[Rfam]
RNA: ALIL pseudoknot
RNA sequence: UGCGUUUUUCGCAGCCGAGCUCGACCGCCCCGCGACGAAAUGAUCGCCUACAUCGAUGCACAUCGCGAUCAAUUCGGGGUCGAGCUCAUCUGCCGCGUCUUGCGGGCAGCAAUCCCG
Numbered sequence: 001u002g003c004g005u006u007u008u009u010c011g012c013a014g015c016c017g018a019g020c021u022c023g024a025c026c027g028c029c030c031c032g033c034g035a036c037g038a039a040a041u042g043a044u045c046g047c048c049u050a051c052a053u054c055g056a057u058g059c060a061c062a063u064c065g066c067g068a069u070c071a072a073u074u075c076g077g078g079g080u081c082g083a084g085c086u087c088a089u090c091u092g093c094c095g096c097g098u099c100u101u102g103c104g105g106g107c108a109g110c111a112a113u114c115c116c117g
Base pairs, nucleotide, nucleotide: 014028015027017025075117076116077115078114079113086112089106090105091104092103093102095100